[Rfam]
RNA sequence: AAGGAGCAAUACCCAAUUUCUUGAUAUAUCAAGAGGUUUGGUAUUGCUCUGUU
Numbered sequence: 001a002a003g004g005a006g007c008a009a010u011a012c013c014c015a016a017u018u019u020c021u022u023g024a025u026a027u028a029u030c031a032a033g034a035g036g037u038u039u040g041g042u043a044u045u046g047c048u049c050u051g052u053u
Stems, first nucleotide, its partner, number of pairs: 001052001003050011018035006
Rfam assigns this 53-nucleotide RNA sequence from Drimys granadensis to the family "Plastid-psbA-3 3UTR RNA". Its Rfam clan is "Plastid-psbA 3UTR RNA clan". By type it is a cis-regulatory element. Plastid psbA-3 is a non-coding RNA (ncRNA) present in plastids. It was identified in inverted repeat sequences in the 3 prime untranslate region (3UTR) of photosystem II quinone-binding protein (psbA). The literature on the family includes a 2023 paper in Plant Commun by Richter et al., "Retrograde signaling in plants: A critical review focusing on the GUN pathway and beyond". The base pairs follow the family's consensus structure, which was predicted with LocARNA.